[Rfam]
RNA sequence: CACUUAUCAAGACGGAUCGAGGGAAAGGCCCUAUGACGUCCAGCAACCUGCCCUUUGGUAAGGUGCUAACUCCUACAGCAGUCAUGCUGGAAGAUAAGAA
Numbered sequence: 001c002a003c004u005u006a007u008c009a010a011g012a013c014g015g016a017u018c019g020a021g022g023g024a025a026a027g028g029c030c031c032u033a034u035g036a037c038g039u040c041c042a043g044c045a046a047c048c049u050g051c052c053c054u055u056u057g058g059u060a061a062g063g064u065g066c067u068a069a070c071u072c073c074u075a076c077a078g079c080a081g082u083c084a085u086g087c088u089g090g091a092a093g094a095u096a097a098g099a100a
Base pairs, nucleotide, nucleotide: 003098004097005096006095007094008093014041015040016039017038021031022030023029026074027073028072042067043066044065045064047063048062049060050059051058052057071092076089077088078087079086080085

SAM riboswitch aptamer (S box leader): a 100-nucleotide RNA sequence from Macrococcus lamae. Pairs were carried over by alignment from the consensus structure, which is taken from published work. The organism belongs to Macrococcus, within Bacteria.